[Rfam]
RNA sequence: CCAUGAACUUUGUACCGCGCACAUCACUUAGAUGGACACCGGAAAGUAACAUAAGUA
Number, nucleotide and partner (000 for none) at each position: 001c000002c000003a000004u000005g000006a000007a000008c000009u000010u000011u000012g000013u000014a000015c000016c000017g000018c000019g037020c000021a000022c034023a033024u032025c031026a000027c000028u000029u000030a000031g025032a024033u023034g022035g000036a000037c019038a000039c000040c000041g000042g000043a000044a000045a000046g000047u000048a000049a000050c000051a000052u000053a000054a000055g000056u000057a000
A member of the RNA family "Plastid-ndhJ 3UTR RNA" from Dioscorea zingiberensis, 57 nucleotides long. Plastid ndhJ is a non-coding RNA (ncRNA) present in plastids. It was identified as a short stem-loop motif in the 3 prime untranslate region (3UTR) of ndhJ gene. Rfam 15.1 lists 869 matches to the family in 155 species. The literature on the family includes a 2023 paper in Plant Commun by Richter et al., "Retrograde signaling in plants: A critical review focusing on the GUN pathway and beyond". Taxonomically the source falls in Dioscorea (Eukaryota, Embryophyta, Magnoliopsida, Liliopsida). The base pairs follow the family's consensus structure, which was predicted with LocARNA.